[Rfam]
Rfam assigns this 130-nucleotide sequence from Peribacillus saganii to the family "FMN riboswitch aptamer (RFN element)".
RNA sequence: GCAGUCCUUCGGGGUCGGGUGUGAGUCCCAACCGGCGGUGAUGAAGCAAUUCUAAGCCCGCGAGCCUUAAUAGGCAGGAUUUGGUGUGAAUCCAAAGCCGACAGUAUAGUCUGGAUGGGAGAAGGACGUA
Dot-bracket structure: ...(((((((......(((.......))).[[((((((.................[[))))....(.......).....(((((.......)))))]])).(((....]]))).......)))))))...